Rfam assigns this 102-nucleotide sequence from Paracoccus limosus to the family "TPP riboswitch aptamer (THI element)". For this family Rfam cites "Validating fragment-based drug discovery for biological RNAs: lead fragments bind and remodel the TPP riboswitch specifically" (Warner et al., Chem Biol, 2014). It scores 59 bits against the family's covariance model.
RNA sequence: CCAAGGGGAGUCCCGGCAGGGGGCUGAGAGGCCGACGGCAUCCGCAAGGAGGCGCGCGGCGACCCUUUGAACCUGAACCGGAUCAUGCCGGCGCAGGGAUGG
Numbered sequence: 001c002c003a004a005g006g007g008g009a010g011u012c013c014c015g016g017c018a019g020g021g022g023g024c025u026g027a028g029a030g031g032c033c034g035a036c037g038g039c040a041u042c043c044g045c046a047a048g049g050a051g052g053c054g055c056g057c058g059g060c061g062a063c064c065c066u067u068u069g070a071a072c073c074u075g076a077a078c079c080g081g082a083u084c085a086u087g088c089c090g091g092c093g094c095a096g097g098g099a100u101g102g
Stems, first nucleotide, its partner, number of pairs: 001102003004066004010024005031060004072097004078091004